RNA sequence: UUGACACAGAAAUGAGAAUAGCUAUUAUUUGAAUCAGCUGGUCGCGAGACUGGCUCUGAUAACUGAGAGACUAGCAGGUCGGCCUUUCAGGUUAUCUCCUCAUCAGGCUAAUCACGGUUUCGACCCGGCUCUGCCGGGUCUUUUUUUG
Numbered sequence: 001u002u003g004a005c006a007c008a009g010a011a012a013u014g015a016g017a018a019u020a021g022c023u024a025u026u027a028u029u030u031g032a033a034u035c036a037g038c039u040g041g042u043c044g045c046g047a048g049a050c051u052g053g054c055u056c057u058g059a060u061a062a063c064u065g066a067g068a069g070a071c072u073a074g075c076a077g078g079u080c081g082g083c084c085u086u087u088c089a090g091g092u093u094a095u096c097u098c099c100u101c102a103u104c105a106g107g108c109u110a111a112u113c114a115c116g117g118u119u120u121c122g123a124c125c126c127g128g129c130u131c132u133g134c135c136g137g138g139u140c141u142u143u144u145u146u147u148g
Stems, first nucleotide, its partner, number of pairs: 036055008063090007071081001098107003122140008